[Rfam]
RNA sequence: UUUUAAAUACAUCUCAUGUUAAGGUUAAAC
Numbered sequence: 001u002u003u004u005a006a007a008u009a010c011a012u013c014u015c016a017u018g019u020u021a022a023g024g025u026u027a028a029a030c
Stems, first nucleotide, its partner, number of pairs: 009019004
A member of the RNA family "CRISPR RNA direct repeat element" from Clostridium taeniosporum, 30 nucleotides long. Rfam 15.1 lists 1,947 matches to the family in 60 species. The base pairs follow the family's consensus structure, which was predicted with WAR.